[Rfam]
RNA sequence: UAACAAAAAAUGCCGAAUCCGUUACAGCAAAAGUAACGGUACGGGGGACGAUUUACUAUGGGGUGAAGGCUUGCCGAUGAUUGCGAGCACAGGGAAACCUAUUCCCGAACCCGACAACUAACCUCGGAGGCUUAUAGGAGGAACAUU
Number, nucleotide and partner (000 for none) at each position: 001u000002a000003a000004c000005a000006a000007a000008a000009a000010a000011u000012g131013c130014c129015g000016a000017a000018u000019c039020c038021g037022u036023u035024a034025c033026a000027g000028c000029a000030a000031a000032a000033g025034u024035a023036a022037c021038g020039g019040u000041a000042c126043g125044g124045g123046g122047g000048a000049c000050g000051a000052u000053u000054u000055a000056c000057u000058a000059u000060g000061g112062g111063g110064u000065g000066a000067a000068g000069g000070c000071u087072u086073g000074c000075c000076g000077a000078u000079g000080a000081u000082u000083g000084c000085g000086a072087g071088c000089a000090c000091a000092g106093g105094g104095a103096a000097a000098c000099c000100u000101a000102u000103u095104c094105c093106c092107g000108a000109a000110c063111c062112c061113g000114a000115c000116a000117a000118c000119u000120a000121a000122c046123c045124u044125c043126g042127g000128a000129g014130g013131c012132u000133u000134a000135u000136a000137g000138g000139a000140g000141g000142a000143a000144c000145a000146u000147u000